[Rfam]
RNA sequence: GGAGUUAGCUGGAUAAUCGCUGCUUUGUCGUUGUGCCUUUGGGCAUACGGGCGAAGGGGAGGAAAGUCCGGGCUCCAUAGGGCAGGGUGCCAGGUAACGCCUGGGGAGCGCGAGCUCACGACCAGUGCAGCAGAGAGUAAACCGCCGAUGGCCUUCGGGCACAGGUAAGGGUGAAAGGGUGCGGUAAGAGCGCACCGCGCGGCUGGCAACAGUUCGUGGCACGGUAAACUCCACCCGGAGCAAGACCAAAUAGGCCUCCAUGGGCGCGGCCCGCGCUGGAGGCGGGUAGGUUGCUUGAGCCAGUGAGCGAUUGCUGGCCUAGAGGAAUGAUUAUCACUCGAGCUUGCUUGAGACAAAACCCGGCUUACAAGCUAACUCCACCU
Numbered sequence: 001g002g003a004g005u006u007a008g009c010u011g012g013a014u015a016a017u018c019g020c021u022g023c024u025u026u027g028u029c030g031u032u033g034u035g036c037c038u039u040u041g042g043g044c045a046u047a048c049g050g051g052c053g054a055a056g057g058g059g060a061g062g063a064a065a066g067u068c069c070g071g072g073c074u075c076c077a078u079a080g081g082g083c084a085g086g087g088u089g090c091c092a093g094g095u096a097a098c099g100c101c102u103g104g105g106g107a108g109c110g111c112g113a114g115c116u117c118a119c120g121a122c123c124a125g126u127g128c129a130g131c132a133g134a135g136a137g138u139a140a141a142c143c144g145c146c147g148a149u150g151g152c153c154u155u156c157g158g159g160c161a162c163a164g165g166u167a168a169g170g171g172u173g174a175a176a177g178g179g180u181g182c183g184g185u186a187a188g189a190g191c192g193c194a195c196c197g198c199g200c201g202g203c204u205g206g207c208a209a210c211a212g213u214u215c216g217u218g219g220c221a222c223g224g225u226a227a228a229c230u231c232c233a234c235c236c237g238g239a240g241c242a243a244g245a246c247c248a249a250a251u252a253g254g255c256c257u258c259c260a261u262g263g264g265c266g267c268g269g270c271c272c273g274c275g276c277u278g279g280a281g282g283c284g285g286g287u288a289g290g291u292u293g294c295u296u297g298a299g300c301c302a303g304u305g306a307g308c309g310a311u312u313g314c315u316g317g318c319c320u321a322g323a324g325g326a327a328u329g330a331u332u333a334u335c336a337c338u339c340g341a342g343c344u345u346g347c348u349u350g351a352g353a354c355a356a357a358a359c360c361c362g363g364c365u366u367a368c369a370a371g372c373u374a375a376c377u378c379c380a381c382c383u
Base pairs, nucleotide, nucleotide: 001379002378003377004376005375006374007373008372009371010370011368012335013334014333015332016331017330018329020059021058023056024055025054026053027052028051064366065365066364068363069362070361071360072359073240074239075238076237080272081271082270083269085236086235087234088233089232090104091103092102093101094100105119106117107116108115109114120231121230125229126228127225128224142170143169144166145165146164149161150160152158178196179195180194181193182192183191197220198218199217200216201215202214203212204211205210244292245291246290247289254283255282256281257280258279259278263277264276265275266274267273299318300317301316302315303314304313305312306311
The family of this 383-nucleotide RNA sequence from Oceanisphaera avium is "Bacterial RNase P class A".
The match comes from Rfam's covariance-model search (333 bits).